Potassium channel RNA editing signal: a 113-nucleotide sequence from Echeneis naucrates.
[Rfam]
RNA sequence: CUAGGUAUGGAGACAUGGUGCCAAAGACAAUCGCUGGAAAGAUCUUCGGCUCCAUCUGCUCCCUCAGUGGUGUACUGGUGAUCGCUCUGCCCGUCCCCGUCAUCGUCUCCAAC
Numbered sequence: 001c002u003a004g005g006u007a008u009g010g011a012g013a014c015a016u017g018g019u020g021c022c023a024a025a026g027a028c029a030a031u032c033g034c035u036g037g038a039a040a041g042a043u044c045u046u047c048g049g050c051u052c053c054a055u056c057u058g059c060u061c062c063c064u065c066a067g068u069g070g071u072g073u074a075c076u077g078g079u080g081a082u083c084g085c086u087c088u089g090c091c092c093g094u095c096c097c098c099g100u101c102a103u104c105g106u107c108u109c110c111a112a113c
Stems, first nucleotide, its partner, number of pairs: 002112001004110002007106004012101003017096002020094002036076002039073001048062002
About this RNA
Rfam's curators write: This family represents a group of sequences related to the human potassium channel Kv1.1 hairpin element which directs the efficient modification of an adenosine to inosine by an adenosine deaminase acting on RNA (ADAR). The ADAR modification causes an isoleucine/valine recoding event which lies in the ion-conducting pore of the potassium channel. It is thought that this editing event targets the process of fast inactivation and allows a more rapid recovery from inactivation at negative potentials. NCBI's taxonomy places the organism under Eukaryota, Gnathostomata, Osteoglossocephalai, Echeneidae, Echeneis. Rfam classes the family as a cis-regulatory element.